[Rfam]
RNA sequence: AUGCCCUUAUAUCUUAAGGGACAUGAGGAUAGUCAGUAGUCCAAUGUCCCUCUUGAUGGUAC
Numbered sequence: 001a002u003g004c005c006c007u008u009a010u011a012u013c014u015u016a017a018g019g020g021a022c023a024u025g026a027g028g029a030u031a032g033u034c035a036g037u038a039g040u041c042c043a044a045u046g047u048c049c050c051u052c053u054u055g056a057u058g059g060u061a062c
Base pairs, nucleotide, nucleotide: 002061003060004059005058007056008055009054017051018050019049020048021047027041028040030038031037